[Rfam]
RNA: ZMP/ZTP riboswitch aptamer (pfl RNA motif)
Organism: Sporomusa termitida
RNA sequence: AAUAAAUUGCAUGACUGACGGUAUUAGUGGAGUUCACCACAUGAAGUGCAAUUUUUUCGCAGUAACGUCGACCGUCUGGACAGCAUUU
Numbered sequence: 001a002a003u004a005a006a007u008u009g010c011a012u013g014a015c016u017g018a019c020g021g022u023a024u025u026a027g028u029g030g031a032g033u034u035c036a037c038c039a040c041a042u043g044a045a046g047u048g049c050a051a052u053u054u055u056u057u058c059g060c061a062g063u064a065a066c067g068u069c070g071a072c073c074g075u076c077u078g079g080a081c082a083g084c085a086u087u088u
Stems, first nucleotide, its partner, number of pairs: 004054009015043001017076005027040004067081003